[Rfam]
RNA sequence: UUUAAUUUAGAAGCGCCUGGACUUAAAGCCUUAAGGCUUUAAGUUGACGAGGGCAGGGUUUAUCGAGACAUCGGCGGGUGCCCUGCGGUCUUCCUGCGACCGUUAGAGGACUGGUAAAACCACAGGCGACUGUGGCAUAGAGCAGUCCGGGCAGGAAA
Numbered sequence: 001u002u003u004a005a006u007u008u009a010g011a012a013g014c015g016c017c018u019g020g021a022c023u024u025a026a027a028g029c030c031u032u033a034a035g036g037c038u039u040u041a042a043g044u045u046g047a048c049g050a051g052g053g054c055a056g057g058g059u060u061u062a063u064c065g066a067g068a069c070a071u072c073g074g075c076g077g078g079u080g081c082c083c084u085g086c087g088g089u090c091u092u093c094c095u096g097c098g099a100c101c102g103u104u105a106g107a108g109g110a111c112u113g114g115u116a117a118a119a120c121c122a123c124a125g126g127c128g129a130c131u132g133u134g135g136c137a138u139a140g141a142g143c144a145g146u147c148c149g150g151g152c153a154g155g156a157a158a
Stems, first nucleotide, its partner, number of pairs: 020045008029036001054085005063074004086102005108148006120135006
RNA: glmS glucosamine-6-phosphate activated ribozyme aptamer
Organism: Caldanaerobacter subterraneus